A member of the RNA family "Small nucleolar RNA Z39" from Jacana jacana, 63 nucleotides long.
For this family Rfam cites "The high diversity of snoRNAs in plants: identification and comparative study of 120 snoRNA genes from Oryza sativa" (Chen et al., Nucleic Acids Res, 2003).
The match comes from Rfam's covariance-model search (51 bits).
Taxonomically the source falls in Jacana (Eukaryota, Gnathostomata, Dipnotetrapodomorpha, Neognathae).
RNA sequence: GUACAGAUGAUGAACAUUACAGUAUGAGGGGCAACGGUGAUACUGUAAACGCUUUCUGAUGUA
Dot-bracket structure: .((((......((((....((((((..............)))))).....).)))....))))